RNA: Bacterial RNase P class A
Organism: Natronosporangium hydrolyticum
RNA sequence: CGAGCCGGCCGGGCGGUCGCGUCAGCAGCUCCGGCUGUUGCCGAGGAACGUCCGGACUCCGUAGGGCAGGGUGGUUGUUAACGGCAACCCGGGGCGACCCGCGGGACAGUGCCACAGAAAACAAACCGCCGGCCGAGCCUGGCCGGUAAGGGUGAAACGGUGGGGUAAAAGCCCACCAGCAUCCCGGGUGACCGGGGUGGCUUGGUAAACCCCACCCGGAGCAAGGCCAAGAGGGUCGCCGCAGCAAUUCGGCGACCUGCGCAGGCGCCUGAGGACGGCCCGUCCGAUGCCUGCGGGUAGGCCGCUAGAGCCCGUCGGCGACGGCGGGCCGAGAGGGAUGGCCGCCGGUCACCCUUCGGGUGACCACAGAAUCCGGCGUACAGGCCGACUCGUCCG
Dot-bracket structure: ((((.(((((((((((((.((.((((((......)))))).))....[[[.[[[[[((((...[[[[.((((((((((.....)))))(((((....)))).)((...(((((............((((((((((....))))))))..)).......((((((.......)))))).(((((((((....)))))))).)..)))..)))))))))))))...((((............................................((((.]]]]))))..............))))......((((((((....))))))))..........))))))).........................]]]]]]]].).))))).))))....